[Rfam]
RNA sequence: AUAAUAUUCGGAACUUCAGUCUAUCGAGCAAUAUCACCCGCUUGGUAGACGAUUUUCCCUUUUAACGU
Numbered sequence: 001a002u003a004a005u006a007u008u009c010g011g012a013a014c015u016u017c018a019g020u021c022u023a024u025c026g027a028g029c030a031a032u033a034u035c036a037c038c039c040g041c042u043u044g045g046u047a048g049a050c051g052a053u054u055u056u057c058c059c060u061u062u063u064a065a066c067g068u
Stems, first nucleotide, its partner, number of pairs: 005064002010058003016052002020049010
The family of this 68-nucleotide RNA sequence from Bombyx mori is "mir-2774 microRNA precursor family". Gene Ontology terms of the family: miRNA-mediated post-transcriptional gene silencing and RISC complex. The match comes from Rfam's covariance-model search (59 bits). The source organism's lineage runs through Eukaryota, Ecdysozoa, Eumetabola, Lepidoptera and Bombyx. The literature on the family includes a 2010 paper in BMC Genomics by Liu et al., "MicroRNAs of Bombyx mori identified by Solexa sequencing". Pairs were carried over by alignment from the consensus structure, which was predicted with RNAalifold.